[Rfam]
RNA sequence: AUGCCUUAAACUUAUGAGUAAGGAAAAUAAUGAUUCGGGGUGAUGUGUAAAUCCUCACUGCUAAUGUGAGAUGAAUUUUUGAGUGGGUAAAGGUUACCCCUAAGGUGACCCGUUUACUUUGCCAGAUGCCUGGGUAUAGAGAUCUGCCUG
Numbered sequence: 001a002u003g004c005c006u007u008a009a010a011c012u013u014a015u016g017a018g019u020a021a022g023g024a025a026a027a028u029a030a031u032g033a034u035u036c037g038g039g040g041u042g043a044u045g046u047g048u049a050a051a052u053c054c055u056c057a058c059u060g061c062u063a064a065u066g067u068g069a070g071a072u073g074a075a076u077u078u079u080u081g082a083g084u085g086g087g088u089a090a091a092g093g094u095u096a097c098c099c100c101u102a103a104g105g106u107g108a109c110c111c112g113u114u115u116a117c118u119u120u121g122c123c124a125g126a127u128g129c130c131u132g133g134g135u136a137u138a139g140a141g142a143u144c145u146g147c148c149u150g
Stems, first nucleotide, its partner, number of pairs: 004023005032053004037048001039046001054070005084150005091145005097139001100134002103131005109125001112122002
The record is a 150-nucleotide sequence from Castor canadensis, which matches "U12 minor spliceosomal RNA" in Rfam. By type it is a spliceosomal small nuclear RNA. A reference for the family is Tarn and Steitz (1997), "Pre-mRNA splicing: the discovery of a new spliceosome doubles the challenge", Trends Biochem Sci. The family has 62 seed sequences and 2,106 matches in Rfam 15.1. The source organism's lineage runs through Eukaryota, Bilateria, Mammalia, Theria and Castor. The match comes from Rfam's covariance-model search (115 bits). Its family is annotated with mRNA branch site recognition, U12 snRNP and pre-mRNA branch point binding in the Gene Ontology. The base pairs follow the family's consensus structure.